Description
The family of this 152-nucleotide RNA sequence from Dasania phycosphaerae is "FMN riboswitch aptamer (RFN element)".
RNA sequence: GGAAGUUCUCAGGGCGGGGUGAAAGUCCCCACCGGCGGUAAUCGUACGUAAGUGCGUAGCCCGCGGGCGCUCUCGUCAUCAUCUGGCGGGGGGACAAGCAGACUCGGUGUGAUUCCGGGGCCGACAGUUACAGUCUGGUUAUGAGAAUGAGG
Numbered sequence: 001g002g003a004a005g006u007u008c009u010c011a012g013g014g015c016g017g018g019g020u021g022a023a024a025g026u027c028c029c030c031a032c033c034g035g036c037g038g039u040a041a042u043c044g045u046a047c048g049u050a051a052g053u054g055c056g057u058a059g060c061c062c063g064c065g066g067g068c069g070c071u072c073u074c075g076u077c078a079u080c081a082u083c084u085g086g087c088g089g090g091g092g093g094a095c096a097a098g099c100a101g102a103c104u105c106g107g108u109g110u111g112a113u114u115c116c117g118g119g120g121c122c123g124a125c126a127g128u129u130a131c132a133g134u135c136u137g138g139u140u141a142u143g144a145g146a147a148u149g150a151g152g
Stems, first nucleotide, its partner, number of pairs: 005148006017029003031134002033123002035064004059121002067099002103119005125137003

Overview
About the family: The RFN element is a highly conserved domain that is found frequently in the 5'-untranslated regions of prokaryotic mRNAs that encode for flavin mononucleotide (FMN) biosynthesis and transport proteins. Its family is annotated with FMN binding in the Gene Ontology.